Shown here is a 131-nucleotide RNA sequence from Actinidia chinensis, a member of the family "Small nucleolar RNA snoR74". It scores 106 bits against the family's covariance model. The literature on the family includes a 2002 paper in Curr Biol by Marker et al., "Experimental RNomics: identification of 140 candidates for small non-messenger RNAs in the plant Arabidopsis thaliana".
RNA sequence: AAAAAAGCAGGGGCCUACUGCCUUUCUAUGGAUGGGUCUCUCGUAAACUUCAGGGAAAACAAUUGGCAUUGUUAUUGGGUGAACCUCUUGAGUAAUCAGUGACAUAAGGUUCAGUAAAUGAUGGAAUAUUG
Numbered sequence: 001a002a003a004a005a006a007g008c009a010g011g012g013g014c015c016u017a018c019u020g021c022c023u024u025u026c027u028a029u030g031g032a033u034g035g036g037u038c039u040c041u042c043g044u045a046a047a048c049u050u051c052a053g054g055g056a057a058a059a060c061a062a063u064u065g066g067c068a069u070u071g072u073u074a075u076u077g078g079g080u081g082a083a084c085c086u087c088u089u090g091a092g093u094a095a096u097c098a099g100u101g102a103c104a105u106a107a108g109g110u111u112c113a114g115u116a117a118a119u120g121a122u123g124g125a126a127u128a129u130u131g
Base pairs, nucleotide, nucleotide: 005050006049007048011039012038014036015035016034017033067123068122069121070120071119072118073117080113081112082111083110084109085108086107